[Rfam]
This 126-nucleotide sequence from Schaalia cardiffensis belongs to the Rfam family "FMN riboswitch aptamer (RFN element)".
RNA sequence: AGUCAGCUCCGGGGUCGGUGUAAUUCCGAACCGGCGGUGAAAGUCCGCGACCCGCUCGCAUAGAGGGCGGUUGAAUCGGUGUAAUUCCGAUACCGACGGUGAAAGUCCGGAUGGGAGGAGCAUGAG
Numbered sequence: 001a002g003u004c005a006g007c008u009c010c011g012g013g014g015u016c017g018g019u020g021u022a023a024u025u026c027c028g029a030a031c032c033g034g035c036g037g038u039g040a041a042a043g044u045c046c047g048c049g050a051c052c053c054g055c056u057c058g059c060a061u062a063g064a065g066g067g068c069g070g071u072u073g074a075a076u077c078g079g080u081g082u083a084a085u086u087c088c089g090a091u092a093c094c095g096a097c098g099g100u101g102a103a104a105g106u107c108c109g110g111a112u113g114g115g116a117g118g119a120g121c122a123u124g125a126g
Base pairs, nucleotide, nucleotide: 003124006121007120008119009118010117016028017027018026030106031105032095033094034048035047036046037045043093044092052070053069075091076090077089078088079087097109098108099107